Shown here is a 73-nucleotide sequence from Pongo pygmaeus, a member of the family "mir-631 microRNA precursor family".
A reference for the family is Brameier (2010), "Genome-wide comparative analysis of microRNAs in three non-human primates", BMC Res Notes.
Rfam 15.1 lists 98 matches to the family in 94 species.

[Rfam]
RNA sequence: GGGGAGCCUGGUUAGACCUGGCCCAGACCUCAGCUACACAAGCUGAUGGACUGAGUCAGGGGCCACACUCUCC
Numbered sequence: 001g002g003g004g005a006g007c008c009u010g011g012u013u014a015g016a017c018c019u020g021g022c023c024c025a026g027a028c029c030u031c032a033g034c035u036a037c038a039c040a041a042g043c044u045g046a047u048g049g050a051c052u053g054a055g056u057c058a059g060g061g062g063c064c065a066c067a068c069u070c071u072c073c
Stems, first nucleotide, its partner, number of pairs: 001073006009065005017060006024053003028049002030046006
Lineage of the source: Eukaryota > Mammalia > Theria > Boreoeutheria > Pongo. The family's consensus secondary structure was predicted with RNAalifold.